[Rfam]
RNA sequence: UGCGCAGCGCAUGGCGCAGCACGAUGUUGCGGAACGCCACCCCCUUGAGCCGGGCGGUGCGGAUAUAUUGCGCCGUCAUCACCUCGGUCAUCGAGGCGCGGGUCAUCCGGGCGAUAUAGCCCAUGCCGUAGAGUGCGAUGGUCAUCACCGGCAGGGUGAAGUUGCGGAAGGUGGCGUCC
Numbered sequence: 001u002g003c004g005c006a007g008c009g010c011a012u013g014g015c016g017c018a019g020c021a022c023g024a025u026g027u028u029g030c031g032g033a034a035c036g037c038c039a040c041c042c043c044c045u046u047g048a049g050c051c052g053g054g055c056g057g058u059g060c061g062g063a064u065a066u067a068u069u070g071c072g073c074c075g076u077c078a079u080c081a082c083c084u085c086g087g088u089c090a091u092c093g094a095g096g097c098g099c100g101g102g103u104c105a106u107c108c109g110g111g112c113g114a115u116a117u118a119g120c121c122c123a124u125g126c127c128g129u130a131g132a133g134u135g136c137g138a139u140g141g142u143c144a145u146c147a148c149c150g151g152c153a154g155g156g157u158g159a160a161g162u163u164g165c166g167g168a169a170g171g172u173g174g175c176g177u178c179c
Stems, first nucleotide, its partner, number of pairs: 005140002008137005019126003028123002031120001038113001040111003046105003050101003054097001055075008082096005147177001149174001151172002154165001156163001